Shown here is a 189-nucleotide RNA sequence from Methanosarcina barkeri, a member of the family "Archaeal Small RNA 162". The base pairs follow the family's consensus structure.

[Rfam]
RNA sequence: GCCUUCGGGUAUGCAGGGUUCAGGAUCGUUCUCAAACUUCACUGAACUCUGCAAACAUUCCCACUUAUUCAGUUUUAGAGAAUCCUUUAUAAGUUUUCCGGCCAAUUUCUCUAACUAUCAGAGAUCAGGGAAUCUUUACAGAUCUAAAAUGAGCUACAAAAAACAGUUAGAGAAAUUGGUCGAAAGUUA
Numbered sequence: 001g002c003c004u005u006c007g008g009g010u011a012u013g014c015a016g017g018g019u020u021c022a023g024g025a026u027c028g029u030u031c032u033c034a035a036a037c038u039u040c041a042c043u044g045a046a047c048u049c050u051g052c053a054a055a056c057a058u059u060c061c062c063a064c065u066u067a068u069u070c071a072g073u074u075u076u077a078g079a080g081a082a083u084c085c086u087u088u089a090u091a092a093g094u095u096u097u098c099c100g101g102c103c104a105a106u107u108u109c110u111c112u113a114a115c116u117a118u119c120a121g122a123g124a125u126c127a128g129g130g131a132a133u134c135u136u137u138a139c140a141g142a143u144c145u146a147a148a149a150u151g152a153g154c155u156a157c158a159a160a161a162a163a164c165a166g167u168u169a170g171a172g173a174a175a176u177u178g179g180u181c182g183a184a185a186g187u188u189a
Base pairs, nucleotide, nucleotide: 003186004185005184008062009061012053013052014051015050016049017048018047019046020045021044022043023042028037080098081097082096085093086092087091099182100181101180102179103178104177107174108173109172110171111170112169113168114167115166118129119128